Record summary: The record is a 263-nucleotide sequence from Moschus moschiferus, which matches "RNase MRP" in Rfam. Gene Ontology terms of the family: ribonuclease MRP activity, ribonuclease MRP complex and rRNA processing. The match comes from Rfam's covariance-model search (128 bits). The base pairs follow the family's consensus structure, which is taken from published work. The family's RNA type in Rfam is ribozyme. NCBI's taxonomy places the organism under Eukaryota, Craniata, Teleostomi, Tetrapoda, Moschus.
RNA sequence: GUUUGUGCUGAAGGCCUGUUUCCUAGACUACACACGGAGGACUAGCUCCUUGUUUGCGCCUAGGGGAAAGUCCCCAGACCUUGGGCAAAGAGUGCCACAUGCUCACUCAUGUAGACUUUCCCUGCUUCUCAUGGUUGAGCCCACCAAGAAGCUAUCCCGCCCCGUGCUGGGGGCAGCUAAGUGGUCUGUGGCGAGGUAUCAUCCAUCAGCAGGCUGUGUGUCUGAGCACACACCAGUCUCACAAGGCUCAAUCUCAGCACGCA
Numbered sequence: 001g002u003u004u005g006u007g008c009u010g011a012a013g014g015c016c017u018g019u020u021u022c023c024u025a026g027a028c029u030a031c032a033c034a035c036g037g038a039g040g041a042c043u044a045g046c047u048c049c050u051u052g053u054u055u056g057c058g059c060c061u062a063g064g065g066g067a068a069a070g071u072c073c074c075c076a077g078a079c080c081u082u083g084g085g086c087a088a089a090g091a092g093u094g095c096c097a098c099a100u101g102c103u104c105a106c107u108c109a110u111g112u113a114g115a116c117u118u119u120c121c122c123u124g125c126u127u128c129u130c131a132u133g134g135u136u137g138a139g140c141c142c143a144c145c146a147a148g149a150a151g152c153u154a155u156c157c158c159g160c161c162c163c164g165u166g167c168u169g170g171g172g173g174c175a176g177c178u179a180a181g182u183g184g185u186c187u188g189u190g191g192c193g194a195g196g197u198a199u200c201a202u203c204c205a206u207c208a209g210c211a212g213g214c215u216g217u218g219u220g221u222c223u224g225a226g227c228a229c230a231c232a233c234c235a236g237u238c239u240c241a242c243a244a245g246g247c248u249c250a251a252u253c254u255c256a257g258c259a260c261g262c263a
Stems, first nucleotide, its partner, number of pairs: 002263001004261008014214006022064005028058001037051005069248002072246002084096004097112005114200002120196002123193003130188002141184004166177004216233006